Shown here is a 173-nucleotide sequence from Paenibacillus cellulosilyticus, a member of the family "Group II catalytic intron D1-D4-3". A reference for the family is Bonen and Vogel (2001), "The ins and outs of group II introns", Trends Genet.

Nucleotides: 173
Stems, first nucleotide, its partner, number of pairs: 001016006028173001030171002036165001040160006046151005062146006073138003078133006086114003092107004
Number, partner (000 for none) and nucleotide at each position: 001016u002015c003014c004013a005012c006011c007000g008000u009000g010000a011006g012005g013004u014003g015002g016001a017000a018000u019000c020000u021000g022000a023000a024000g025000g026000a027000a028173g029000c030171c031170g032000g033000c034000g035000g036165c037000a038000a039000a040160u041159c042158u043157c044156c045155g046151g047150u048149c049148u050147g051000a052000g053000g054000a055000a056000c057000a058000c059000g060000a061000a062146c063145u064144u065143c066142a067141u068000a069000u070000a071000a072000g073138g074137c075136u076000a077000g078133c079132g080131u081130u082129u083128g084000u085000u086114g087113g088112a089000c090000g091000a092107g093106g094105u095104u096000g097000c098000a099000a100000a101000a102000c103000a104095a105094a106093c107092c108000a109000a110000a111000a112088u113087u114086c115000g116000u117000a118000c119000u120000g121000c122000c123000a124000a125000a126000g127000g128083c129082a130081a131080g132079c133078g134000a135000g136075a137074g138073u139000a140000a141067a142066u143065g144064a145063a146062g147050c148049a149048g150047a151046u152000a153000g154000a155045u156044g157043g158042a159041g160040a161000g162000g163000a164000a165036g166000a167000u168000a169000g170031c171030g172000c173028u